[Rfam]
RNA sequence: AUUCCAUCGAGACCGGCUGAGGGACAGGCCCGAAGACGCCGGGGCAACCUCUGCGGUGGCGCAAGCCGCCGUACAAGGUGCCAAUUCCUGCGGGGACGCCGUGCCGUCCACCGGAAGAUGGGUC
Numbered sequence: 001a002u003u004c005c006a007u008c009g010a011g012a013c014c015g016g017c018u019g020a021g022g023g024a025c026a027g028g029c030c031c032g033a034a035g036a037c038g039c040c041g042g043g044g045c046a047a048c049c050u051c052u053g054c055g056g057u058g059g060c061g062c063a064a065g066c067c068g069c070c071g072u073a074c075a076a077g078g079u080g081c082c083a084a085u086u087c088c089u090g091c092g093g094g095g096a097c098g099c100c101g102u103g104c105c106g107u108c109c110a111c112c113g114g115a116a117g118a119u120g121g122g123u124c
Stems, first nucleotide, its partner, number of pairs: 003122006013042005021031003025090004043082004048078002086116001091113003095109001
Description
SAM riboswitch aptamer (S box leader): a 124-nucleotide RNA sequence from Coralloluteibacterium stylophorae. A search with the family's covariance model found it, with a score of 67 bits. For this family Rfam cites "Structure and folding of four putative kink turns identified in structured RNA species in a test of structural prediction rules" (Huang et al., Nucleic Acids Res, 2021). Taxonomically the source falls in Coralloluteibacterium (Bacteria, Pseudomonadota, Lysobacterales, Lysobacteraceae).